[Rfam]
RNA sequence: AUUAAAUAUUGUCUCCGAAUCUAUUUAUCUAAGGAAAUCAUUCUAUGAUGGGUAGAUCCGGGAAAUGCCCGCGGGGUAAACAUAGAAAUGUGUGUGCCUGCCAUAUGCAAAGGAGACGUGAAGCUUUUAUG
Numbered sequence: 001a002u003u004a005a006a007u008a009u010u011g012u013c014u015c016c017g018a019a020u021c022u023a024u025u026u027a028u029c030u031a032a033g034g035a036a037a038u039c040a041u042u043c044u045a046u047g048a049u050g051g052g053u054a055g056a057u058c059c060g061g062g063a064a065a066u067g068c069c070c071g072c073g074g075g076g077u078a079a080a081c082a083u084a085g086a087a088a089u090g091u092g093u094g095u096g097c098c099u100g101c102c103a104u105a106u107g108c109a110a111a112g113g114a115g116a117c118g119u120g121a122a123g124c125u126u127u128u129a130u131g
Stems, first nucleotide, its partner, number of pairs: 011117006019057011033044004059071004074099005080093005100108002
RNA: Molybdenum/Tungsten riboswitch aptamer (Moco RNA motif)